A member of the RNA family "ffh sRNA" from Pseudovibrio sp. JE062, 52 nucleotides long. The family's consensus secondary structure is taken from published work. On this family, see Meyer et al., BMC Genomics 2009: "Identification of candidate structured RNAs in the marine organism 'Candidatus Pelagibacter ubique'". By type it is a small RNA. Rfam's curators put it in the seed alignment.
RNA sequence: GAUCCCAGAGGUCAACACCCGACAGCGCGAUGCGCCCUCGGGUGAUUUUUUG
Numbered sequence: 001g002a003u004c005c006c007a008g009a010g011g012u013c014a015a016c017a018c019c020c021g022a023c024a025g026c027g028c029g030a031u032g033c034g035c036c037c038u039c040g041g042g043u044g045a046u047u048u049u050u051u052g
Stems, first nucleotide, its partner, number of pairs: 016044007025035004